[Rfam]
RNA sequence: CGCGGCUCGCGUGACUGGCGCUUCAGCGGAUCACCGCAGGGGAACGCGGCCGACGAUGUUUCGCCGCGCGCCUGGGCACCCCUU
Numbered sequence: 001c002g003c004g005g006c007u008c009g010c011g012u013g014a015c016u017g018g019c020g021c022u023u024c025a026g027c028g029g030a031u032c033a034c035c036g037c038a039g040g041g042g043a044a045c046g047c048g049g050c051c052g053a054c055g056a057u058g059u060u061u062c063g064c065c066g067c068g069c070g071c072c073u074g075g076g077c078a079c080c081c082c083u084u
Base pairs, nucleotide, nucleotide: 005051007049008048009047010046011045012044015041016040017072018071019070020069021068026037027036028035029034063077064076065075
ZMP/ZTP riboswitch aptamer (pfl RNA motif): an 84-nucleotide RNA sequence from Sphingomonas adhaesiva.
Rfam links the family to the GO terms regulation of purine nucleotide biosynthetic process and one-carbon metabolic process.
Lineage of the source: Bacteria > Pseudomonadati > Alphaproteobacteria > Sphingomonadaceae > Sphingomonas.